L31-Firmicutes ribosomal protein leader: a 33-nucleotide RNA sequence from Paenibacillus wynnii. The literature on the family includes a 2020 paper in BMC Microbiol by Eckert and Weinberg, "Discovery of 20 novel ribosomal leader candidates in bacteria and archaea".
[Rfam]
RNA sequence: CUCUGUGCUCGCAUGAGGCCCAGGGCAAAAGAG
Numbered sequence: 001c002u003c004u005g006u007g008c009u010c011g012c013a014u015g016a017g018g019c020c021c022a023g024g025g026c027a028a029a030a031g032a033g
Stems, first nucleotide, its partner, number of pairs: 001025005008017003
Description:
It is annotated as a cis-regulatory leader. The sequence is in the family's curated seed alignment. Clan: Ribosomal Protein L31 Leader clan.